This 59-nucleotide RNA sequence from Beijerinckiaceae bacterium RH AL1 belongs to the Rfam family "Selenocysteine insertion sequence 3". A reference for the family is Huttenhofer et al. (1996), "Solution structure of mRNA hairpins promoting selenocysteine incorporation in Escherichia coli and their base-specific interaction with special elongation factor SELB", RNA.
RNA sequence: GUCUGACACGGACCGUCGGUAGCCAGUCUGGCUCCUUCGUUCGGUCGAGGCGCGAUGAC
Numbered sequence: 001g002u003c004u005g006a007c008a009c010g011g012a013c014c015g016u017c018g019g020u021a022g023c024c025a026g027u028c029u030g031g032c033u034c035c036u037u038c039g040u041u042c043g044g045u046c047g048a049g050g051c052g053c054g055a056u057g058a059c
Stems, first nucleotide, its partner, number of pairs: 007049001009047003013043001015042001018035002021033005